[Rfam]
RNA sequence: GCAAAACCUAAGGGGUGGCGCUAGCGCCUGAGAUGCUCACCGAGCAAACCCUUGAACCUGAUCCGGUUAGUACCGGCGUAGGAAUAGGUAACCUUCCAAAA
Dot-bracket structure: .....(((((((((.(((((....))))......((((...)))))..))))....((((..((((......))))..))))..)))))............
The record is a 101-nucleotide RNA sequence from Microbulbifer thermotolerans, which matches "TPP riboswitch aptamer (THI element)" in Rfam.